Source information: The family of this 207-nucleotide RNA sequence from Nocardia arthritidis is "Actinobacteria sRNA Ms_IGR-5". Pairs were carried over by alignment from the consensus structure.

RNA sequence: ACACGAGGAAGGAGGUGGUUCUGAGAAUGCUUAUUCAUAGGACACGUGAGGUGGCUGUCCGCUAGCGCCACCGCUGCCGGUGGAAUUCACCCGCGCGAGCGCGAAGCGAAUUCCAGGCAGCCACCCGGCCCCCGAGCCCCCGGUCCGUCCGACCGGGACCCGUGCAGGUAGAAAGCCCGCACCGGUAUGGUUCGGGGGCUGUUCCCU
Numbered sequence: 001a002c003a004c005g006a007g008g009a010a011g012g013a014g015g016u017g018g019u020u021c022u023g024a025g026a027a028u029g030c031u032u033a034u035u036c037a038u039a040g041g042a043c044a045c046g047u048g049a050g051g052u053g054g055c056u057g058u059c060c061g062c063u064a065g066c067g068c069c070a071c072c073g074c075u076g077c078c079g080g081u082g083g084a085a086u087u088c089a090c091c092c093g094c095g096c097g098a099g100c101g102c103g104a105a106g107c108g109a110a111u112u113c114c115a116g117g118c119a120g121c122c123a124c125c126c127g128g129c130c131c132c133c134g135a136g137c138c139c140c141c142g143g144u145c146c147g148u149c150c151g152a153c154c155g156g157g158a159c160c161c162g163u164g165c166a167g168g169u170a171g172a173a174a175g176c177c178c179g180c181a182c183c184g185g186u187a188u189g190g191u192u193c194g195g196g197g198g199c200u201g202u203u204c205c206c207u
Stems, first nucleotide, its partner, number of pairs: 014059006060108003063104001065102004072095003126201013139157006

Rfam classes the family as a small RNA.